[Rfam]
RNA sequence: GAGUUAGCGAUGAUUAUAAAAAUAAUUUUUCAUUUUAACUAGCUUAAUUUGGAAUGACAAACCUCUCAUUACACCCAUUGAAUUGAGCUAC
Numbered sequence: 001g002a003g004u005u006a007g008c009g010a011u012g013a014u015u016a017u018a019a020a021a022a023u024a025a026u027u028u029u030u031c032a033u034u035u036u037a038a039c040u041a042g043c044u045u046a047a048u049u050u051g052g053a054a055u056g057a058c059a060a061a062c063c064u065c066u067c068a069u070u071a072c073a074c075c076c077a078u079u080g081a082a083u084u085g086a087g088c089u090a091c
Stems, first nucleotide, its partner, number of pairs: 003091002006089002

Annotation
This 91-nucleotide RNA sequence from Theobroma cacao belongs to the Rfam family "Small nucleolar RNA snoR8a". It is annotated as a C/D-box small nucleolar RNA. Gene Ontology terms of the family: RNA processing and nucleolus. NCBI's taxonomy places the organism under Eukaryota, Spermatophyta, Mesangiospermae, eudicotyledons, Theobroma. The family has 7 seed sequences and 956 matches in Rfam 15.1.